[Rfam]
RNA sequence: AAAGAUUGUCAAUUGCCUAAUAACUGUGAUAACUCUGUAGGUAUUCAUUCGAAAGACAAUUAAUGAAAACCUAUUUAUGAAAGCUGUAUCCCAAGUGAUUAGCCUAGUCGUGAUUAGCGUGGUGGUGAUUAUUAUCCCACCGUGCGGGGCGGCACUUGGACGAAGAAAAGCUUAGAAAACAAGCUCUAAUCUGAAAAACCCCCGCACCGAAAGGACGGGGGUUUUUUUUUGGCAUGAUGUCGGCGGACUGAAAAUGAAGAAUUUAACGACGUAUAGACAGAAGGGGCAGAAGAUGAAAAUCAGCAUAAGAUGCUGUUCCUCCACUAAUAA
Numbered sequence: 001a002a003a004g005a006u007u008g009u010c011a012a013u014u015g016c017c018u019a020a021u022a023a024c025u026g027u028g029a030u031a032a033c034u035c036u037g038u039a040g041g042u043a044u045u046c047a048u049u050c051g052a053a054a055g056a057c058a059a060u061u062a063a064u065g066a067a068a069a070c071c072u073a074u075u076u077a078u079g080a081a082a083g084c085u086g087u088a089u090c091c092c093a094a095g096u097g098a099u100u101a102g103c104c105u106a107g108u109c110g111u112g113a114u115u116a117g118c119g120u121g122g123u124g125g126u127g128a129u130u131a132u133u134a135u136c137c138c139a140c141c142g143u144g145c146g147g148g149g150c151g152g153c154a155c156u157u158g159g160a161c162g163a164a165g166a167a168a169a170g171c172u173u174a175g176a177a178a179a180c181a182a183g184c185u186c187u188a189a190u191c192u193g194a195a196a197a198a199c200c201c202c203c204g205c206a207c208c209g210a211a212a213g214g215a216c217g218g219g220g221g222u223u224u225u226u227u228u229u230u231g232g233c234a235u236g237a238u239g240u241c242g243g244c245g246g247a248c249u250g251a252a253a254a255u256g257a258a259g260a261a262u263u264u265a266a267c268g269a270c271g272u273a274u275a276g277a278c279a280g281a282a283g284g285g286g287c288a289g290a291a292g293a294u295g296a297a298a299a300u301c302a303g304c305a306u307a308a309g310a311u312g313c314u315g316u317u318c319c320u321c322c323a324c325u326a327a328u329a330a
Base pairs, nucleotide, nucleotide: 006032007031008030009029010028011027037074038073039072040071041070042069044067045066046065047064048063049059085245086244087243091242098238099237100236101235102233103232104231106229107228109119110118111117121141122140123139124138125137127136128135129134142161143160145158146157147156148155162191163190169185170184171183172182173181193227194226195225196224197223198222199221200220201219202218203217204216207214208213246317247316248315250313252311254306255305256304
The family of this 330-nucleotide RNA from Biostraticola tofi is "Soft rot Enterobacteriaceae Rev 39 5'UTR". NCBI's taxonomy places the organism under Bacteria, Pseudomonadota, Enterobacterales, Bruguierivoracaceae, Biostraticola. The family's consensus secondary structure was predicted with RNAfold. From bacteria cultured under starvation conditions. It scores 186 bits against the family's covariance model.